[Rfam]
RNA sequence: AAUAAGUGUAGUUUUGCACUGUUCAUAUCCAACAUUUGACUGUUCUUCUUAUUUGAAAAUUAUUAUUAUUACUAUUACUAUUACUAUUAUAUGAUAAAACAUGAAUAGUACUUUAUGUGUGACUAUUUUUUAUAAAUUGUUCAUCAUUUUUUCAAAUAAGACGGAUGGUCAAAUGUUGGACAAGAAUACGGGAUACCUACAGCUGCACUUAUU
Numbered sequence: 001a002a003u004a005a006g007u008g009u010a011g012u013u014u015u016g017c018a019c020u021g022u023u024c025a026u027a028u029c030c031a032a033c034a035u036u037u038g039a040c041u042g043u044u045c046u047u048c049u050u051a052u053u054u055g056a057a058a059a060u061u062a063u064u065a066u067u068a069u070u071a072c073u074a075u076u077a078c079u080a081u082u083a084c085u086a087u088u089a090u091a092u093g094a095u096a097a098a099a100c101a102u103g104a105a106u107a108g109u110a111c112u113u114u115a116u117g118u119g120u121g122a123c124u125a126u127u128u129u130u131u132a133u134a135a136a137u138u139g140u141u142c143a144u145c146a147u148u149u150u151u152u153c154a155a156a157u158a159a160g161a162c163g164g165a166u167g168g169u170c171a172a173a174u175g176u177u178g179g180a181c182a183a184g185a186a187u188a189c190g191g192g193a194u195a196c197c198u199a200c201a202g203c204u205g206c207a208c209u210u211a212u213u
Base pairs, nucleotide, nucleotide: 028180029179030178031177032176033175035173036172037171038170039169040168041167042166043165044164045163047161048160049159050158051157052156

The family of this 213-nucleotide RNA sequence from Oryza sativa is "MIR812 microRNA precursor family". The organism belongs to Oryza sativa, within Eukaryota. The base pairs follow the family's consensus structure, which was predicted with RNAalifold.